RNA sequence: GGGGUUAAGUUUACAGGUGGUUCUGUAGUAGACCUGCAAAGUCUAUGGUUUAGGUUCAAUUCCUACUUAACUCU
Numbered sequence: 001g002g003g004g005u006u007a008a009g010u011u012u013a014c015a016g017g018u019g020g021u022u023c024u025g026u027a028g029u030a031g032a033c034c035u036g037c038a039a040a041g042u043c044u045a046u047g048g049u050u051u052a053g054g055u056u057c058a059a060u061u062c063c064u065a066c067u068u069a070a071c072u073c074u
Stems, first nucleotide, its partner, number of pairs: 001074009012027006028046006051065004

This 74-nucleotide sequence from Gymnopilus dilepis belongs to the Rfam family "Selenocysteine transfer RNA". The match comes from Rfam's covariance-model search (47 bits).